RNA sequence: CGAAAAACCAGCGUCAGAUUGCGCUGGCGAGGACUGCAAAAAAGACCGUCAGACACCGAGCAGGGAUCGGUAGAAAGCCGGUAUUGCGUCGGCAAAAAGUCGACAAAUGUCGGACAAAAGUCGGUAAGCGGUGACGCGAGGCGUCUAAGGACCGGGGGGCGAUGGUAAAAAGGUUCACGCCCUGCAACCAAUGUGACCGGAUUCUAGCAGCCUCAAAUAGUUCGUCAACACUAUAGAUGAGCAAAAGUAUAACUAUUUGUAA
Numbered sequence: 001c002g003a004a005a006a007a008c009c010a011g012c013g014u015c016a017g018a019u020u021g022c023g024c025u026g027g028c029g030a031g032g033a034c035u036g037c038a039a040a041a042a043a044g045a046c047c048g049u050c051a052g053a054c055a056c057c058g059a060g061c062a063g064g065g066a067u068c069g070g071u072a073g074a075a076a077g078c079c080g081g082u083a084u085u086g087c088g089u090c091g092g093c094a095a096a097a098a099g100u101c102g103a104c105a106a107a108u109g110u111c112g113g114a115c116a117a118a119a120g121u122c123g124g125u126a127a128g129c130g131g132u133g134a135c136g137c138g139a140g141g142c143g144u145c146u147a148a149g150g151a152c153c154g155g156g157g158g159g160c161g162a163u164g165g166u167a168a169a170a171a172g173g174u175u176c177a178c179g180c181c182c183u184g185c186a187a188c189c190a191a192u193g194u195g196a197c198c199g200g201a202u203u204c205u206a207g208c209a210g211c212c213u214c215a216a217a218u219a220g221u222u223c224g225u226c227a228a229c230a231c232u233a234u235a236g237a238u239g240a241g242c243a244a245a246a247g248u249a250u251a252a253c254u255a256u257u258u259g260u261a262a
Stems, first nucleotide, its partner, number of pairs: 008027007046165005055125004133145005192230003198224003204220003

The family of this 262-nucleotide RNA sequence from Paraburkholderia sp. DHOC27 is "Burkholderia sRNA Bp1_Cand738_SIPHT". Rfam classes the family as a small RNA. The base pairs follow the family's consensus structure, which was predicted with RNAalifold. Taxonomically the source falls in Paraburkholderia (Bacteria, Pseudomonadati, Betaproteobacteria, Burkholderiales).